[Rfam]
RNA sequence: UUCAACACAGAUUGCAAGACAGGGGAGGCUCAUCAUGUUUAUGGAUGAGGUAGUAGUUGCAGGCAUCGUCAUUGUGGUUCUGACAGCCGGCUUCCUGGGUGGAUUCGCAUAUUUCGUCUGGAAGGAUGCUCAGAAAGGCAAGAAGCCACACUGACCCUUUCCGAUGCGUGGGCACGCAAGGCAUUUGAGGCGACUUAGGUCGCCUUUUUUUUGU
Dot-bracket structure: .((..............................................(((.....)))................(.(......).).........))........................................................................((.(....))).....(((((((....))))))).........
RNA: PhrS